The family of this 108-nucleotide sequence from Ricinus communis is "mir-393 microRNA precursor family".
The literature on the family includes a 2012 paper in J Plant Physiol by Kruszka et al., "Role of microRNAs and other sRNAs of plants in their changing environments".
Gene Ontology terms of the family: miRNA-mediated post-transcriptional gene silencing and RISC complex.

RNA sequence: AAAGUUCCAAAGGGAUCGCAUUGAUCUAAUGUCGUUGGGUACCUAAAUGAGUUAAUUAUAAAUCUAUAAUCCAAUUCAUUGGAUCAUGCGAUCCCUUAGGAAGUCUCC
Numbered sequence: 001a002a003a004g005u006u007c008c009a010a011a012g013g014g015a016u017c018g019c020a021u022u023g024a025u026c027u028a029a030u031g032u033c034g035u036u037g038g039g040u041a042c043c044u045a046a047a048u049g050a051g052u053u054a055a056u057u058a059u060a061a062a063u064c065u066a067u068a069a070u071c072c073a074a075u076u077c078a079u080u081g082g083a084u085c086a087u088g089c090g091a092u093c094c095c096u097u098a099g100g101a102a103g104u105c106u107c108c
Base pairs, nucleotide, nucleotide: 001106003104005102006101007100008099010097011096012095013094014093015092016091018089019088020087021086023085024084025083026082027081028080029079030078031077